[Rfam]
Annotation:
The family of this 75-nucleotide RNA sequence from Mustela putorius is "mir-483 microRNA precursor family". The base pairs follow the family's consensus structure, which was predicted with RNAalifold. NCBI's taxonomy places the organism under Eukaryota, Teleostomi, Carnivora, Mustela, Mustela putorius.
RNA sequence: GGCGGGGAGGGCGGGAGGGCAGGAGGACGCGGUUUCCUGGAGAUCCUCACUCCUCCCCUGCCGUCCUCCCCUUCU
Numbered sequence: 001g002g003c004g005g006g007g008a009g010g011g012c013g014g015g016a017g018g019g020c021a022g023g024a025g026g027a028c029g030c031g032g033u034u035u036c037c038u039g040g041a042g043a044u045c046c047u048c049a050c051u052c053c054u055c056c057c058c059u060g061c062c063g064u065c066c067u068c069c070c071c072u073u074c075u
Base pairs, nucleotide, nucleotide: 004071005070006069007068008067009066010065011064012063013062014061016059017058018057022055024054025053026052027051029050031048